[Rfam]
RNA: Eukaryotic large subunit ribosomal RNA, nucleotides 577 to 840
Organism: Ostreococcus sp. 'lucimarinus'
Nucleotides: 264
Base pairs, nucleotide, nucleotide: 005120006119007118009116010115011114012113013112014111015110016109017108020045021044022043025039026038027037028036029035049056050055072103073102074100075099076098077096078095084089123262124261126259130252131251132250133249134248135247139228140227141226142225143224144223145222146221147220148219149218150216152184153183154182155181159176160175161174162173163172164171165170188213189212190211191210193209194208196207197206230240231239
Number, partner (000 for none) and nucleotide at each position: 001000g002000a003000g004000u005120c006119u007118a008000a009116c010115a011114u012113g013112u014111g015110u016109g017108c018000g019000a020045g021044u022043c023000g024000g025039u026038g027037g028036g029035u030000g031000g032000c033000a034000a035029a036028c037027c038026c039025a040000c041000g042000a043022g044021g045020c046000g047000c048000a049056a050055g051000u052000a053000a054000c055050c056049u057000a058000a059000c060000u061000g062000a063000a064000c065000a066000a067000a068000a069000u070000c071000g072103a073102c074100c075099a076098a077096c078095c079000a080000u081000g082000a083000u084089c085000u086000u087000c088000u089084g090000u091000g092000a093000c094000a095078g096077g097000u098076u099075u100074g101000a102073g103072u104000g105000c106000g107000a108017g109016c110015a111014u112013g113012c114011a115010u116009g117000c118007u119006g120005g121000g122000a123262c124261c125000c126259g127000a128000a129000a130252g131251a132250u133249g134248g135247u136000g137000a138000a139228c140227u141226a142225u143224g144223c145222c146221u147220g148219a149218g150216c151000a152184g153183g154182g155181c156000g157000a158000a159176g160175c161174c162173a163172g164171a165170g166000g167000a168000a169000a170165c171164u172163c173162u174161g175160g176159u177000g178000g179000a180000g181155g182154c183153u184152c185000g186000u187000a188213g189212c190211g191210a192000u193209a194208c195000u196207g197206a198000c199000g200000u201000g202000c203000a204000a205000a206197u207196c208194g209193u210191u211190c212189g213188u214000c215000g216150g217000a218149c219148u220147u221146a222145g223144g224143u225142a226141u227140a228139g229000g230240g231239g232000c233000g234000a235000a236000a237000g238000a239231c240230u241000a242000a243000u244000c245000g246000a247135a248134c249133c250132a251131u252130c253000u254000a255000g256000u257000a258000g259126c260000u261124g262123g263000u264000u